The family of this 117-nucleotide RNA sequence from Bacillus licheniformis is "epsC RNA".

RNA sequence: AGGUGAUGUCUCCUUGCCUUUACCGAUGGAGGCACUCGGCUCUACCGUGGGCAGACUACCUGUCUGCCUUAGACGCAAGUCGUCGAUGGCGGGGCGUGAGGACGGGUUAAAUGCCCA
Numbered sequence: 001a002g003g004u005g006a007u008g009u010c011u012c013c014u015u016g017c018c019u020u021u022a023c024c025g026a027u028g029g030a031g032g033c034a035c036u037c038g039g040c041u042c043u044a045c046c047g048u049g050g051g052c053a054g055a056c057u058a059c060c061u062g063u064c065u066g067c068c069u070u071a072g073a074c075g076c077a078a079g080u081c082g083u084c085g086a087u088g089g090c091g092g093g094g095c096g097u098g099a100g101g102a103c104g105g106g107u108u109a110a111a112u113g114c115c116c117a
Base pairs, nucleotide, nucleotide: 001019002018003017004016007034008033009032010031011030012029013028035100036099037098038097039095040094041093042092043091045089046088049069050068051067052066053065054064055063056062072084073083074082075081104116105115106114107113
Dot-bracket structure: [[[[..(((((((..]]]]........)))))))(((((((((.((..((((((((.....))))))))..((((.....))))...)).))))).))))...((((.....)))).
Annotation: The sequence is in the family's curated seed alignment. The organism belongs to Bacillus licheniformis, within Bacteria.